Rfam assigns this 73-nucleotide sequence from Eptatretus burgeri to the family "tRNA".
RNA sequence: GCCCAGAUAGCUCAGAUGGCAGAGCGCUGGUACGGUUCACCAGUGCACCUGGGUUCGAUUCCCAGUCUGGGCG
Numbered sequence: 001g002c003c004c005a006g007a008u009a010g011c012u013c014a015g016a017u018g019g020c021a022g023a024g025c026g027c028u029g030g031u032a033c034g035g036u037u038c039a040c041c042a043g044u045g046c047a048c049c050u051g052g053g054u055u056c057g058a059u060u061c062c063c064a065g066u067c068u069g070g071g072c073g
Stems, first nucleotide, its partner, number of pairs: 001072007010025004027043005049065005
The family's consensus secondary structure is taken from published work.